A member of the RNA family "Bacterial large subunit ribosomal RNA" from Bulleidia extructa, 331 nucleotides of a longer RNA. The organism belongs to Bulleidia extructa, within Bacteria.
[Rfam]
RNA sequence: CGAGAGAACUGUUGCCAAGGAACUCGGCAAAUUGACCCCGUACGUUCGCAAUAAGGGGUGCUCGAAAGAGCCGCAGUAAAUAGGCCCUAGCAACUGUUUAACUAAAACAUAGCUCUCUGCCAAGUCGCAAGACGAAGUAUAGGGGGUGACACCUGCCCGGUGCUGGAAGGUCAAGGGGAUUAGUUAGGAGCAAUCCGAAGCUUUGAACCGAAGCCCCAGUGAACGGCGGCCGUAACUAUAACGGUCCUAAGGUAGCGAAAUUCCUUGUCAGGUAAGUUCUGACCCGCACGAAAGGUGUAAUGAUUUGGGCACUGUCUCGGCAGCAGACUCG
Numbered sequence: 001c002g003a004g005a006g007a008a009c010u011g012u013u014g015c016c017a018a019g020g021a022a023c024u025c026g027g028c029a030a031a032u033u034g035a036c037c038c039c040g041u042a043c044g045u046u047c048g049c050a051a052u053a054a055g056g057g058g059u060g061c062u063c064g065a066a067a068g069a070g071c072c073g074c075a076g077u078a079a080a081u082a083g084g085c086c087c088u089a090g091c092a093a094c095u096g097u098u099u100a101a102c103u104a105a106a107a108c109a110u111a112g113c114u115c116u117c118u119g120c121c122a123a124g125u126c127g128c129a130a131g132a133c134g135a136a137g138u139a140u141a142g143g144g145g146g147u148g149a150c151a152c153c154u155g156c157c158c159g160g161u162g163c164u165g166g167a168a169g170g171u172c173a174a175g176g177g178g179a180u181u182a183g184u185u186a187g188g189a190g191c192a193a194u195c196c197g198a199a200g201c202u203u204u205g206a207a208c209c210g211a212a213g214c215c216c217c218a219g220u221g222a223a224c225g226g227c228g229g230c231c232g233u234a235a236c237u238a239u240a241a242c243g244g245u246c247c248u249a250a251g252g253u254a255g256c257g258a259a260a261u262u263c264c265u266u267g268u269c270a271g272g273u274a275a276g277u278u279c280u281g282a283c284c285c286g287c288a289c290g291a292a293a294g295g296u297g298u299a300a301u302g303a304u305u306u307g308g309g310c311a312c313u314g315u316c317u318c319g320g321c322a323g324c325a326g327a328c329u330c331g
Stems, first nucleotide, its partner, number of pairs: 001331004009326008018317003035059005044049001060071004072076001084310004089305002091302002095109003112147008120137001124133003150297004155227003160224002162220005169215003175209002182202003187196002228246006247251001257284001267283006